[Rfam]
RNA sequence: AAAUAAAAAUGAAAAAAGUGUUGACUAUUGGUGGGAUAUUAUAGUAUAUUAAUUAAGUCGCCAUUAAAGAUACAUGAAAUGAAUGGAAUAAUGUCGCGGGGUGGAGCAGCUCGG
Numbered sequence: 001a002a003a004u005a006a007a008a009a010u011g012a013a014a015a016a017a018g019u020g021u022u023g024a025c026u027a028u029u030g031g032u033g034g035g036a037u038a039u040u041a042u043a044g045u046a047u048a049u050u051a052a053u054u055a056a057g058u059c060g061c062c063a064u065u066a067a068a069g070a071u072a073c074a075u076g077a078a079a080u081g082a083a084u085g086g087a088a089u090a091a092u093g094u095c096g097c098g099g100g101g102u103g104g105a106g107c108a109g110c111u112c113g114g
Stems, first nucleotide, its partner, number of pairs: 004041003010023003025035002063089003
This 114-nucleotide RNA from Paenibacillus oryzae belongs to the Rfam family "Staphylococcus sRNA 774". Northern blot transcript confirmed in exponentially growing and stationary cells in three cultivation media. Trans-encoded. On this family, see Mader et al., PLoS Genet 2016: "Staphylococcus aureus Transcriptome Architecture: From Laboratory to Infection-Mimicking Conditions". The base pairs follow the family's consensus structure, which was predicted with R-scape.